[Rfam]
RNA sequence: UUCACAAUUGAAUAAGCCACUCGUAUAAUCUCAGGAAUAUGGCCUGAAAGUUUCUACCAGAUAACCGUAAAUUAUCUGACUACGGGGGAAAGUGCGCCUAGG
Numbered sequence: 001u002u003c004a005c006a007a008u009u010g011a012a013u014a015a016g017c018c019a020c021u022c023g024u025a026u027a028a029u030c031u032c033a034g035g036a037a038u039a040u041g042g043c044c045u046g047a048a049a050g051u052u053u054c055u056a057c058c059a060g061a062u063a064a065c066c067g068u069a070a071a072u073u074a075u076c077u078g079a080c081u082a083c084g085g086g087g088g089a090a091a092g093u094g095c096g097c098c099u100a101g102g
Base pairs, nucleotide, nucleotide: 018088020086021085022084023083024082025081029049031047032046033045034044035043058078059077060076061075062074063073064072